[Rfam]
RNA sequence: ACGGCGGAUUCCGAAAAGCCGAAUAAAGAGUAGGAA
Numbered sequence: 001a002c003g004g005c006g007g008a009u010u011c012c013g014a015a016a017a018g019c020c021g022a023a024u025a026a027a028g029a030g031u032a033g034g035a036a
Base pairs, nucleotide, nucleotide: 002021003020004019005018010035011034012033